[Rfam]
Rfam assigns this 99-nucleotide RNA sequence from Podarcis muralis to the family "Vault RNA".
This family of RNAs are found as part of the enigmatic vault ribonucleoprotein complex.
RNA sequence: GAGGCAGCUUAGCCCAGCGGUUCCAUCGACCAGUGCAUAGCUUGGAGCCUGCAAUCACCCACAGUGGCUUGAAACCCACGGGCACUGCCUGGCUUUUAA
Numbered sequence: 001g002a003g004g005c006a007g008c009u010u011a012g013c014c015c016a017g018c019g020g021u022u023c024c025a026u027c028g029a030c031c032a033g034u035g036c037a038u039a040g041c042u043u044g045g046a047g048c049c050u051g052c053a054a055u056c057a058c059c060c061a062c063a064g065u066g067g068c069u070u071g072a073a074a075c076c077c078a079c080g081g082g083c084a085c086u087g088c089c090u091g092g093c094u095u096u097u098a099a
Stems, first nucleotide, its partner, number of pairs: 002094002005091003012083004017079001019077002026072004
On this family, see Stadler et al., Mol Biol Evol 2009: "Evolution of Vault RNAs". Pairs were carried over by alignment from the consensus structure, which is taken from published work.